[Rfam]
This 80-nucleotide sequence from Zizania palustris belongs to the Rfam family "Small nucleolar RNA Z161/Z228". Rfam classes the family as a C/D-box small nucleolar RNA. Rfam links the family to the GO terms RNA processing and nucleolus.

RNA sequence: GAUCCUUAUGAUGAGAAUAUGUACAUUAUCUCACAACGGUCUGCUGAGAAUUCUUUGAUGAUAAAUAUUCUCUGAAGUCC
Numbered sequence: 001g002a003u004c005c006u007u008a009u010g011a012u013g014a015g016a017a018u019a020u021g022u023a024c025a026u027u028a029u030c031u032c033a034c035a036a037c038g039g040u041c042u043g044c045u046g047a048g049a050a051u052u053c054u055u056u057g058a059u060g061a062u063a064a065a066u067a068u069u070c071u072c073u074g075a076a077g078u079c080c
Base pairs, nucleotide, nucleotide: 001080004077048056049055050054

Taxonomically the source falls in Zizania (Eukaryota, Viridiplantae, Streptophyta, Euphyllophyta). For this family Rfam cites "The high diversity of snoRNAs in plants: identification and comparative study of 120 snoRNA genes from Oryza sativa" (Chen et al., Nucleic Acids Res, 2003).